RNA sequence: GAUAAAUGUAAUACGCAAAAGAGUAAAAGUAAUUUGGAGCAGUACGAGAGGAACACUCAAUUCGGACAUUUGGUUUAGGCCCUUCUGCGAAAGCAGAGUGGGGCGAAGCUACGUCCGUUGGAUAAAGGCUGAAAGCCUCUAAGCCCGAAUCCAUACUUGCUCUCUUUGGGGGGUUUCCUUAGGUCCCGGUUGGUGGUCCUGGUCUUCCUUAGGUGCUUCGCACUUUAUGCCUGAAGCCUGGUCGGUGUUCCGGUCUCGCGACCGGGCCUCUGGCCAGGCCCUCAUGAAAUGACCUAGGCCGGGUCCCUGGAACCCAUGUUCACUUGAUAGACGAUUAAGGAUAGGCCCAGCACUGUACGUCUAGAGCGCUUCUUAGUGCGAUUGCCUGAUGUGUCUGGAGCCUUCUGAAGCC
Numbered sequence: 001g002a003u004a005a006a007u008g009u010a011a012u013a014c015g016c017a018a019a020a021g022a023g024u025a026a027a028a029g030u031a032a033u034u035u036g037g038a039g040c041a042g043u044a045c046g047a048g049a050g051g052a053a054c055a056c057u058c059a060a061u062u063c064g065g066a067c068a069u070u071u072g073g074u075u076u077a078g079g080c081c082c083u084u085c086u087g088c089g090a091a092a093g094c095a096g097a098g099u100g101g102g103g104c105g106a107a108g109c110u111a112c113g114u115c116c117g118u119u120g121g122a123u124a125a126a127g128g129c130u131g132a133a134a135g136c137c138u139c140u141a142a143g144c145c146c147g148a149a150u151c152c153a154u155a156c157u158u159g160c161u162c163u164c165u166u167u168g169g170g171g172g173g174u175u176u177c178c179u180u181a182g183g184u185c186c187c188g189g190u191u192g193g194u195g196g197u198c199c200u201g202g203u204c205u206u207c208c209u210u211a212g213g214u215g216c217u218u219c220g221c222a223c224u225u226u227a228u229g230c231c232u233g234a235a236g237c238c239u240g241g242u243c244g245g246u247g248u249u250c251c252g253g254u255c256u257c258g259c260g261a262c263c264g265g266g267c268c269u270c271u272g273g274c275c276a277g278g279c280c281c282u283c284a285u286g287a288a289a290u291g292a293c294c295u296a297g298g299c300c301g302g303g304u305c306c307c308u309g310g311a312a313c314c315c316a317u318g319u320u321c322a323c324u325u326g327a328u329a330g331a332c333g334a335u336u337a338a339g340g341a342u343a344g345g346c347c348c349a350g351c352a353c354u355g356u357a358c359g360u361c362u363a364g365a366g367c368g369c370u371u372c373u374u375a376g377u378g379c380g381a382u383u384g385c386c387u388g389a390u391g392u393g394u395c396u397g398g399a400g401c402c403u404u405c406u407g408a409a410g411c412c
Stems, first nucleotide, its partner, number of pairs: 018167006027158004032062001034060004063117005071111003079104004083098006119153003127145004173314001175312004319409004323339005344402003348397003352392002359386001361384001363382001366379005
RNA: Eukaryotic large subunit ribosomal RNA, nucleotides 4709 to 5120
Organism: Dimargaris cristalligena